[Rfam]
RNA sequence: UCUCGCUUAAGCAACGCAAACCCUACCUACUUUUGCGUCCUUGCAGCUCUAUAACUGCGCCAGUGUGAAUAAGUGUCUUCAAAAAUUG
Numbered sequence: 001u002c003u004c005g006c007u008u009a010a011g012c013a014a015c016g017c018a019a020a021c022c023c024u025a026c027c028u029a030c031u032u033u034u035g036c037g038u039c040c041u042u043g044c045a046g047c048u049c050u051a052u053a054a055c056u057g058c059g060c061c062a063g064u065g066u067g068a069a070u071a072a073g074u075g076u077c078u079u080c081a082a083a084a085a086u087u088g
Base pairs, nucleotide, nucleotide: 036067037066040063041062042059043058044057045056046055048053
The family of this 88-nucleotide RNA sequence from Planococcaceae bacterium Storch 2/2-2 is "BsrC". The 301 nucleotide sequence from Kouji Nakamura has been trimmed to a highly conserved ~85 nucleotide long core to form this family. The source organism's lineage runs through Bacteria, Bacillati, Bacillota, Bacilli and Caryophanaceae. For this family Rfam cites "Novel small RNA-encoding genes in the intergenic regions of Bacillus subtilis" (Saito et al., Gene, 2008). The base pairs follow the family's consensus structure, which was predicted with CMfinder. The family's RNA type in Rfam is small RNA.